[Rfam]
RNA sequence: AUGAUGGUUAUGGGAGAGUCCGCAAUUUGGCGGCGCCGAUGGGGCAAAGCUUUGUUCAAACUCUCAGGUAAACAUACUGUAACCGGACC
Numbered sequence: 001a002u003g004a005u006g007g008u009u010a011u012g013g014g015a016g017a018g019u020c021c022g023c024a025a026u027u028u029g030g031c032g033g034c035g036c037c038g039a040u041g042g043g044g045c046a047a048a049g050c051u052u053u054g055u056u057c058a059a060a061c062u063c064u065c066a067g068g069u070a071a072a073c074a075u076a077c078u079g080u081a082a083c084c085g086g087a088c089c
Base pairs, nucleotide, nucleotide: 006084007083008082009081010080011079012078013077020033021032022031023030035069036068037067038065039064042063043062044061048056049055
Glycine riboswitch aptamer: an 89-nucleotide RNA from Anaerosporomusa subterranea. This family represents the bacterial glycine riboswitch. NCBI's taxonomy places the organism under Bacteria, Bacillati, Bacillota, Acetonemataceae, Anaerosporomusa.